Repression of heat shock gene expression (ROSE) element: a 93-nucleotide sequence from Microvirga tunisiensis. The organism belongs to Microvirga, within Bacteria. From the family's description: This family represents a 5' UTR cis-regulatory element found in heat shock mRNAs and is known as the ROSE (repression of heat shock gene expression) element. Its family is annotated with regulation of translation and response to temperature stimulus in the Gene Ontology.
Nucleotides: 093
Base pairs, nucleotide, nucleotide: 001024002023003022004021005020006019008018009017030052031051032050033049034048035047036046037045053091054090055089056088057087058086060084061083062082063081064080065079066078068077069076070075
Number, partner (000 for none) and nucleotide at each position: 001024g002023c003022c004021g005020a006019g007000g008018c009017u010000c011000a012000u013000c014000a015000a016000g017009a018008g019006c020005u021004u022003g023002g024001c025000a026000u027000u028000c029000g030052g031051g032050c033049g034048c035047c036046g037045g038000c039000g040000g041000g042000u043000g044000u045037c046036c047035g048034g049033u050032g051031c052030u053091c054090u055089u056088a057087u058086g059000g060084u061083u062082a063081c064080g065079u066078u067000g068077c069076u070075c071000a072000a073000u074000g075070g076069a077068g078066g079065a080064u081063g082062u083061a084060g085000c086058u087057a088056u089055g090054a091053g092000a093000a